[Rfam]
RNA sequence: CCUGUGGACUAUCAUAUCAAAUGUUAGUAGCAGAUAAGCGAGGACAGAUAGGUCGAAGCAGGAA
Numbered sequence: 001c002c003u004g005u006g007g008a009c010u011a012u013c014a015u016a017u018c019a020a021a022u023g024u025u026a027g028u029a030g031c032a033g034a035u036a037a038g039c040g041a042g043g044a045c046a047g048a049u050a051g052g053u054c055g056a057a058g059c060a061g062g063a064a
Stems, first nucleotide, its partner, number of pairs: 001062005009051005022046003030039002
The family of this 64-nucleotide sequence from Anaerocolumna sedimenticola is "RAGATH-18 RNA". About the family: Actinobacteria, Firmicutes, Fusobacteria, Thermotogae (1 example). The base pairs follow the family's consensus structure, which is taken from published work. Lineage of the source: Bacteria > Bacillati > Clostridia > Lachnospiraceae > Anaerocolumna. Rfam classes the family as a small RNA.